[Rfam]
RNA sequence: UGGUAGCGAACGCCUAAGUCGCCGCAAUUUCCUGUGCGGCGACGCGGGGGAACCACCGGCGACAGCGGCUCAUCGCUGUUGCCCGGGGCGCACGCCGAAGCUCUCUUCGGCGGGGUCACUUCCUAGGACCUAGCCCGUCAGCUAACCUCGUCGGCAUUGGGAAGGGCGAUA
Numbered sequence: 001u002g003g004u005a006g007c008g009a010a011c012g013c014c015u016a017a018g019u020c021g022c023c024g025c026a027a028u029u030u031c032c033u034g035u036g037c038g039g040c041g042a043c044g045c046g047g048g049g050g051a052a053c054c055a056c057c058g059g060c061g062a063c064a065g066c067g068g069c070u071c072a073u074c075g076c077u078g079u080u081g082c083c084c085g086g087g088g089c090g091c092a093c094g095c096c097g098a099a100g101c102u103c104u105c106u107u108c109g110g111c112g113g114g115g116u117c118a119c120u121u122c123c124u125a126g127g128a129c130c131u132a133g134c135c136c137g138u139c140a141g142c143u144a145a146c147c148u149c150g151u152c153g154g155c156a157u158u159g160g161g162a163a164g165g166g167c168g169a170u171a
Stems, first nucleotide, its partner, number of pairs: 012155003018043009044151006054085001086136003094111004114130004
Notes:
The record is a 171-nucleotide sequence from Opitutus terrae, which matches "c-di-AMP riboswitch aptamer (ydaO/yuaA leader)" in Rfam. It scores 60 bits against the family's covariance model. Rfam links the family to the GO terms regulation of gene expression and cyclic-di-AMP binding.